[Rfam]
RNA sequence: GUAAAGAAGUGUUAAAAACACUUCCGCCGAAAGUCCAAGGGUUCCUGCGCAAGGGUAAUCCACGCAGGGUUAGCCGGCCCCUAAGGCGAGGACGAAAGUCGUAGUCGAUGGGAAUCAGGUUAAAAUUCCUGAGCCAGCUGGAGAUGACGAAGGAAAAAUGAUGUUAGUUCUAAAUGGAUUGAGCUAGCUAUGUUUUUUCUUCCAGGAAAUAAUCCCAGCAAUAGACCGUACCCCAAACCGACACUGGUGGACAAGUAGAGUAUACUAAGGCGCU
Numbered sequence: 001g002u003a004a005a006g007a008a009g010u011g012u013u014a015a016a017a018a019c020a021c022u023u024c025c026g027c028c029g030a031a032a033g034u035c036c037a038a039g040g041g042u043u044c045c046u047g048c049g050c051a052a053g054g055g056u057a058a059u060c061c062a063c064g065c066a067g068g069g070u071u072a073g074c075c076g077g078c079c080c081c082u083a084a085g086g087c088g089a090g091g092a093c094g095a096a097a098g099u100c101g102u103a104g105u106c107g108a109u110g111g112g113a114a115u116c117a118g119g120u121u122a123a124a125a126u127u128c129c130u131g132a133g134c135c136a137g138c139u140g141g142a143g144a145u146g147a148c149g150a151a152g153g154a155a156a157a158a159u160g161a162u163g164u165u166a167g168u169u170c171u172a173a174a175u176g177g178a179u180u181g182a183g184c185u186a187g188c189u190a191u192g193u194u195u196u197u198u199c200u201u202c203c204a205g206g207a208a209a210u211a212a213u214c215c216c217a218g219c220a221a222u223a224g225a226c227c228g229u230a231c232c233c234c235a236a237a238c239c240g241a242c243a244c245u246g247g248u249g250g251a252c253a254a255g256u257a258g259a260g261u262a263u264a265c266u267a268a269g270g271c272g273c274u
Base pairs, nucleotide, nucleotide: 006024007023008022009021010020011019025272026271027270028269033252034251035250036249039232040231044068045067046066047065048064049063053061054060075228076227077226080111081110085106086105087104089102091100092099093098115132116131117130118129119128135224137219140216141215143213145211149202150201151200152199155195156194157193165186166185167184168183169182170181238247239246254266255265256264257263
Bacterial large subunit ribosomal RNA: a 274-nucleotide part of an RNA from Holospora undulata. Taxonomically the source falls in Holospora undulata (Bacteria, Pseudomonadati, Alphaproteobacteria, Holosporaceae). The match comes from Rfam's covariance-model search (2712 bits).